Annotation:
Shown here is a 527-nucleotide part of an RNA from Lachnellula suecica, a member of the family "Eukaryotic large subunit ribosomal RNA". The family has 88 seed sequences and 107,465 matches in Rfam 15.1. Pairs were carried over by alignment from the consensus structure, which is taken from published work. Lineage of the source: Eukaryota > Opisthokonta > Ascomycota > Pezizomycotina > Lachnellula.
RNA sequence: GGGAAUCUGACUGUCUAAUUAAAACAUAGCAUUGCGAUGGCCAGAAAGUGGUGUUGACGCAAUGUGAUUUCUGCCCAGUGCUCUGAAUGUCAAAGUGAAGAAAUUCAACCAAGCGCGGGUAAACGGCGGGAGUAACUAUGACUCGACGGUAUAUCUGUCAAAUUUAUAUGAGAGGGUCAUCAGAGCGGCGCGUAAAUCGUCCGCUAGUGCCUCUGGGUGCUACACUGUCAAAUUGCGGGGAGUCCCUGAAGCUUCAACUACCGCCGCCCUGCUAAAAGGCUGGGCGGCACCAGGGUAAUGACCUCGGGUAUGGUAAUAACGUUGAAGAUUGGGUGACCUGCAGCCAAACCCUACGGAGGCAACUCUACGGGUGCAGUUCAACGACUAGACGGCGGUGGGUCCUAUGCAGGGCUUAAGAUAUAGUCUACCCCAGGUUGAAAGGCCUGGGCUAAUGUGCUCUUAAGGUAGCCAAAUGCCUCGUCAUCUAAUUAGUGACGCGCAUGAAUGGAUUAACGAGAUUCCCACUG
Numbered sequence: 001g002g003g004a005a006u007c008u009g010a011c012u013g014u015c016u017a018a019u020u021a022a023a024a025c026a027u028a029g030c031a032u033u034g035c036g037a038u039g040g041c042c043a044g045a046a047a048g049u050g051g052u053g054u055u056g057a058c059g060c061a062a063u064g065u066g067a068u069u070u071c072u073g074c075c076c077a078g079u080g081c082u083c084u085g086a087a088u089g090u091c092a093a094a095g096u097g098a099a100g101a102a103a104u105u106c107a108a109c110c111a112a113g114c115g116c117g118g119g120u121a122a123a124c125g126g127c128g129g130g131a132g133u134a135a136c137u138a139u140g141a142c143u144c145g146a147c148g149g150u151a152u153a154u155c156u157g158u159c160a161a162a163u164u165u166a167u168a169u170g171a172g173a174g175g176g177u178c179a180u181c182a183g184a185g186c187g188g189c190g191c192g193u194a195a196a197u198c199g200u201c202c203g204c205u206a207g208u209g210c211c212u213c214u215g216g217g218u219g220c221u222a223c224a225c226u227g228u229c230a231a232a233u234u235g236c237g238g239g240g241a242g243u244c245c246c247u248g249a250a251g252c253u254u255c256a257a258c259u260a261c262c263g264c265c266g267c268c269c270u271g272c273u274a275a276a277a278g279g280c281u282g283g284g285c286g287g288c289a290c291c292a293g294g295g296u297a298a299u300g301a302c303c304u305c306g307g308g309u310a311u312g313g314u315a316a317u318a319a320c321g322u323u324g325a326a327g328a329u330u331g332g333g334u335g336a337c338c339u340g341c342a343g344c345c346a347a348a349c350c351c352u353a354c355g356g357a358g359g360c361a362a363c364u365c366u367a368c369g370g371g372u373g374c375a376g377u378u379c380a381a382c383g384a385c386u387a388g389a390c391g392g393c394g395g396u397g398g399g400u401c402c403u404a405u406g407c408a409g410g411g412c413u414u415a416a417g418a419u420a421u422a423g424u425c426u427a428c429c430c431c432a433g434g435u436u437g438a439a440a441g442g443c444c445u446g447g448g449c450u451a452a453u454g455u456g457c458u459c460u461u462a463a464g465g466u467a468g469c470c471a472a473a474u475g476c477c478u479c480g481u482c483a484u485c486u487a488a489u490u491a492g493u494g495a496c497g498c499g500c501a502u503g504a505a506u507g508g509a510u511u512a513a514c515g516a517g518a519u520u521c522c523c524a525c526u527g
Stems, first nucleotide, its partner, number of pairs: 001523007008515002012026003029065008040052004069509003073127003078124002080120004085116001088115003096107004128459003132455002460464001480496005
Dot-bracket structure: (((((((((..(((.........)))..((((((((...((((.....)))).....))))))))...(((.(((..((((((.(..(((.....((((....)))).....))))))))..)))))(((.((................................................................................................................................................................................................................................................................................................................................)).)))(...)...............(((((.......)))))..........)))....)).)))))))....